[Rfam]
RNA sequence: CGCCUAAACCCUAUUUUAUAGGGCAUGGCGUAAAAUCCCAUCGAAGAUACCGAGCUCCACGUUCGGCAAACUCUUCGAUGGGUUGCACUCCGAAAGGCGUGCAAGGGCGAAAGCCCU
Numbered sequence: 001c002g003c004c005u006a007a008a009c010c011c012u013a014u015u016u017u018a019u020a021g022g023g024c025a026u027g028g029c030g031u032a033a034a035a036u037c038c039c040a041u042c043g044a045a046g047a048u049a050c051c052g053a054g055c056u057c058c059a060c061g062u063u064c065g066g067c068a069a070a071c072u073c074u075u076c077g078a079u080g081g082g083u084u085g086c087a088c089u090c091c092g093a094a095a096g097g098c099g100u101g102c103a104a105g106g107g108c109g110a111a112a113g114c115c116c117u
Stems, first nucleotide, its partner, number of pairs: 001030004009023006037082011048068001050066005084103005090097002104117005
The family of this 117-nucleotide RNA sequence is "LOOT RNA".
By type it is a small RNA.